Annotation
The record is a 449-nucleotide part of an RNA from Sneathiella litorea, which matches "Bacterial large subunit ribosomal RNA" in Rfam. The match comes from Rfam's covariance-model search (2780 bits).
RNA sequence: CUCCGCGAAAUCUAUUUAGGUAGAGCGUCUUGUAUCAUCUUCGGGGGUAGAGCACUGGAUGGGCUAGGGGGUCCCAACGACUUACCAAACCUAACCAAACUCCGAAUACCGAAGAAUGCAGCAAGGCAGACAGGCAGUGGGUGCUAAGAUCCAUUGCCGAGAGGGAAACAGCCCAGACCGCCAGCUAAGGUCCCUAAGUCAUGGCUAAGUGGGAAAGGAUGUGGGAAGGCCAAAACAACCAGGAGGUUGGCUUAGAAGCAGCCACCCUUUAAAGAAAGCGUAAUAGCUCACUGGUCUAAAUUUAAGCCGGCCUGCGCCGAAGAUGUACCGGGGCUAAAGCCAUGCACCGAAGCUGCGGAUUCAGUCUUUUAGACUGAGUGGUAGCGGAGCGUUCCGUAAGCCUGUGAAGGGUAACCGCGAGGUUGCCUGGAGGUAUCGGAAGUGAGAAU
Dot-bracket structure: ((((((....(((((....))))).((((((((.(..(((((((.....(((...(((.((((...(((((((.....))))).))...)))).)))..)).).....)))))))....)))))))).)...((((((((((......))))))))))....(((......)))...((((.(((...(((......(.((((((...........((..(((((..(((.......(((((.(((..(((.........)))..)))(...)(...((......)).).)))))..........)))..))))).))....................))))))))))...)))))))((((((((.....))))))))....))))))(.(((((...(((......((((((((....))))))))...)))..)))))..).....
Numbered sequence: 001c002u003c004c005g006c007g008a009a010a011u012c013u014a015u016u017u018a019g020g021u022a023g024a025g026c027g028u029c030u031u032g033u034a035u036c037a038u039c040u041u042c043g044g045g046g047g048u049a050g051a052g053c054a055c056u057g058g059a060u061g062g063g064c065u066a067g068g069g070g071g072u073c074c075c076a077a078c079g080a081c082u083u084a085c086c087a088a089a090c091c092u093a094a095c096c097a098a099a100c101u102c103c104g105a106a107u108a109c110c111g112a113a114g115a116a117u118g119c120a121g122c123a124a125g126g127c128a129g130a131c132a133g134g135c136a137g138u139g140g141g142u143g144c145u146a147a148g149a150u151c152c153a154u155u156g157c158c159g160a161g162a163g164g165g166a167a168a169c170a171g172c173c174c175a176g177a178c179c180g181c182c183a184g185c186u187a188a189g190g191u192c193c194c195u196a197a198g199u200c201a202u203g204g205c206u207a208a209g210u211g212g213g214a215a216a217g218g219a220u221g222u223g224g225g226a227a228g229g230c231c232a233a234a235a236c237a238a239c240c241a242g243g244a245g246g247u248u249g250g251c252u253u254a255g256a257a258g259c260a261g262c263c264a265c266c267c268u269u270u271a272a273a274g275a276a277a278g279c280g281u282a283a284u285a286g287c288u289c290a291c292u293g294g295u296c297u298a299a300a301u302u303u304a305a306g307c308c309g310g311c312c313u314g315c316g317c318c319g320a321a322g323a324u325g326u327a328c329c330g331g332g333g334c335u336a337a338a339g340c341c342a343u344g345c346a347c348c349g350a351a352g353c354u355g356c357g358g359a360u361u362c363a364g365u366c367u368u369u370u371a372g373a374c375u376g377a378g379u380g381g382u383a384g385c386g387g388a389g390c391g392u393u394c395c396g397u398a399a400g401c402c403u404g405u406g407a408a409g410g411g412u413a414a415c416c417g418c419g420a421g422g423u424u425g426c427c428u429g430g431a432g433g434u435a436u437c438g439g440a441a442g443u444g445a446g447a448a449u
Stems, first nucleotide, its partner, number of pairs: 001389006011024005026129001027127007035120001038115007050103001051101002056097003060093004067086002069083005133158010163174003178358004183354003189348003198345001200344006217318002221315005228308003238295005244268003249263003269273001274289001278287002359379008390444001392441005400434003409428008